About this RNA: Rfam assigns this 53-nucleotide sequence from Cyanophage P-RSM6 to the family "Glutamine-II riboswitch aptamer". The family's consensus secondary structure is taken from published work. Gene Ontology term of the family: glutamine binding.
[Rfam]
RNA sequence: AUACGUUCAUCCCCAUAGGGGGACGCAAGUAAGCCGACUCGGAACGGAAUCGU
Numbered sequence: 001a002u003a004c005g006u007u008c009a010u011c012c013c014c015a016u017a018g019g020g021g022g023a024c025g026c027a028a029g030u031a032a033g034c035c036g037a038c039u040c041g042g043a044a045c046g047g048a049a050u051c052g053u
Stems, first nucleotide, its partner, number of pairs: 004046005010023005035052003039048001
Dot-bracket structure: ...(((((.(((((....)))))...........[[[.[..))))).].]]].

Overview:
The match comes from Rfam's covariance-model search (33 bits). The literature on the family includes a 2019 paper in Nucleic Acids Res by Huang et al., "Structure and ligand binding of the glutamine-II riboswitch".